[Rfam]
RNA sequence: UUGUUUCCUGCUUCAGCAGUGCUUGGAUGGAACGG
Numbered sequence: 001u002u003g004u005u006u007c008c009u010g011c012u013u014c015a016g017c018a019g020u021g022c023u024u025g026g027a028u029g030g031a032a033c034g035g
Base pairs, nucleotide, nucleotide: 001035002034003033004032005031007030008029010028012027013026014025015024016023017021